[Rfam]
RNA sequence: UGCUUUGCAUGGUAUCUGCACUUAGCAACUCCCUCCUGCUGGUGUGUUCAAAGAAAGUUCAAUAGAAAUUCACUAUCUGGCAUUGGUGGUUUUCUUGGCUUUGGUGCCUAUUAAACCUGGUAUUUCUAUUGAUACAGUU
Numbered sequence: 001u002g003c004u005u006u007g008c009a010u011g012g013u014a015u016c017u018g019c020a021c022u023u024a025g026c027a028a029c030u031c032c033c034u035c036c037u038g039c040u041g042g043u044g045u046g047u048u049c050a051a052a053g054a055a056a057g058u059u060c061a062a063u064a065g066a067a068a069u070u071c072a073c074u075a076u077c078u079g080g081c082a083u084u085g086g087u088g089g090u091u092u093u094c095u096u097g098g099c100u101u102u103g104g105u106g107c108c109u110a111u112u113a114a115a116c117c118u119g120g121u122a123u124u125u126c127u128a129u130u131g132a133u134a135c136a137g138u139u
Stems, first nucleotide, its partner, number of pairs: 002060001005057002015054003018047004023042001024040004063128007070120003079108005
Shown here is a 139-nucleotide RNA from Nannospalax galili, a member of the family "Small nucleolar RNA SNORA8". It scores 106 bits against the family's covariance model. The family's consensus secondary structure was predicted with RNAfold. ACA8 is a member of the H/ACA class of snoRNA that guide the sites of modification of uridines to pseudouridines. Taxonomically the source falls in Nannospalax (Eukaryota, Opisthokonta, Teleostomi, Spalacidae). It is annotated as an H/ACA-box small nucleolar RNA.